The record is a 145-nucleotide RNA from Carpinus fangiana, which matches "small nucleolar RNA snoR143" in Rfam. Pairs were carried over by alignment from the consensus structure, which was predicted with RNAalifold. Rfam classes the family as an H/ACA-box small nucleolar RNA. The family has 3 seed sequences and 660 matches in Rfam 15.1.
RNA sequence: UUUCCCUCAACAGGUUUUGGAAACAAAACCUGUUUUUGGGAACCUGCGGGUGCGAUUGGGCAGCGGCCAGACAACCGUAGGGAUGGUUUCCACAGAUGACGGGUUUUGUUAUCUCGUUUCAUCUACUAAAUCCCAUCUCACAUUU
Numbered sequence: 001u002u003u004c005c006c007u008c009a010a011c012a013g014g015u016u017u018u019g020g021a022a023a024c025a026a027a028a029c030c031u032g033u034u035u036u037u038g039g040g041a042a043c044c045u046g047c048g049g050g051u052g053c054g055a056u057u058g059g060g061c062a063g064c065g066g067c068c069a070g071a072c073a074a075c076c077g078u079a080g081g082g083a084u085g086g087u088u089u090c091c092a093c094a095g096a097u098g099a100c101g102g103g104u105u106u107u108g109u110u111a112u113c114u115c116g117u118u119u120c121a122u123c124u125a126c127u128a129a130a131u132c133c134c135a136u137c138u139c140a141c142a143u144u145u
Stems, first nucleotide, its partner, number of pairs: 002042005009034003013030007080139007098118006